[Rfam]
RNA sequence: AUCGCUUCUCGGCCUUUUGGCUAAGAUCAAAGUGUAGUAUCUGUUCUUAUCAGCUUAAUAUCUGAUACGACUAGCAUUGCUAGUCCAGAAUAUUAAACUGAUUUUUGGAAUUAGUCGGGAUGCUAGGGGCUUGCUCCACUCCUGACACGGGUUGGCCUGGUAUUGCAGUACCGCCAGGAUCGGCCCACCAUAA
Numbered sequence: 001a002u003c004g005c006u007u008c009u010c011g012g013c014c015u016u017u018u019g020g021c022u023a024a025g026a027u028c029a030a031a032g033u034g035u036a037g038u039a040u041c042u043g044u045u046c047u048u049a050u051c052a053g054c055u056u057a058a059u060a061u062c063u064g065a066u067a068c069g070a071c072u073a074g075c076a077u078u079g080c081u082a083g084u085c086c087a088g089a090a091u092a093u094u095a096a097a098c099u100g101a102u103u104u105u106u107g108g109a110a111u112u113a114g115u116c117g118g119g120a121u122g123c124u125a126g127g128g129g130c131u132u133g134c135u136c137c138a139c140u141c142c143u144g145a146c147a148c149g150g151g152u153u154g155g156c157c158u159g160g161u162a163u164u165g166c167a168g169u170a171c172c173g174c175c176a177g178g179a180u181c182g183g184c185c186c187a188c189c190a191u192a193a
Base pairs, nucleotide, nucleotide: 007026008025009024011022012021013020014019048067049066050065051064052063053062069085070084071083072082073081074080075079114146115145116144117143118142119141120140126137127136128135129134149186150185151184152183153182154181156178157177158176159175160174161173
Shown here is a 193-nucleotide sequence from Cloeon dipterum, a member of the family "U2 spliceosomal RNA". Rfam classes the family as a spliceosomal small nuclear RNA. Clan: U2 clan. U2 is a small nuclear RNA (snRNA) component of the spliceosome (involved in pre-mRNA splicing). Lineage of the source: Eukaryota > Protostomia > Panarthropoda > Palaeoptera > Cloeon.